[Rfam]
RNA sequence: GGAUGGGACCGGCGCGGCGGAUACCAGCGAACCUCGUCAGGUCCGAGAGGAAGCAGCGAUAAGGUGGAUCAUCCGGGCGCCGCCGGGAAACCUGUCCGGA
Number, nucleotide and partner (000 for none) at each position: 001g000002g000003a000004u094005g093006g092007g091008a000009c086010c085011g084012g083013c082014g081015c077016g000017g000018c075019g074020g073021a072022u071023a000024c067025c066026a065027g000028c063029g000030a000031a000032c000033c000034u059035c058036g057037u056038c000039a000040g000041g000042u051043c050044c049045g000046a000047g000048a000049g044050g043051a042052a000053g000054c000055a000056g037057c036058g035059a034060u000061a000062a000063g028064g000065u026066g025067g024068a000069u000070c000071a022072u021073c020074c019075g018076g000077g015078c000079g000080c000081c014082g013083c012084c011085g010086g009087g000088a000089a000090a000091c007092c006093u005094g004095u000096c000097c000098g000099g000100a000